RNA sequence: GGUCAUGAGUGCCAGCGUCAAGCCCCGGCUUGCUGGCCGGCAACCCUCCUCGCGACGGGGUGCCCCGGGUGAUGACCGGGCCGCGUCGAGGCGACGUGGCAAGGCGAGACA
Numbered sequence: 001g002g003u004c005a006u007g008a009g010u011g012c013c014a015g016c017g018u019c020a021a022g023c024c025c026c027g028g029c030u031u032g033c034u035g036g037c038c039g040g041c042a043a044c045c046c047u048c049c050u051c052g053c054g055a056c057g058g059g060g061u062g063c064c065c066c067g068g069g070u071g072a073u074g075a076c077c078g079g080g081c082c083g084c085g086u087c088g089a090g091g092c093g094a095c096g097u098g099g100c101a102a103g104g105c106g107a108g109a110c111a
Stems, first nucleotide, its partner, number of pairs: 001077004009038001011037006021030002039064003044060003049054001080100009
RNA: SAM (S-adenosyl methionine) riboswitch aptamer
Organism: Janibacter indicus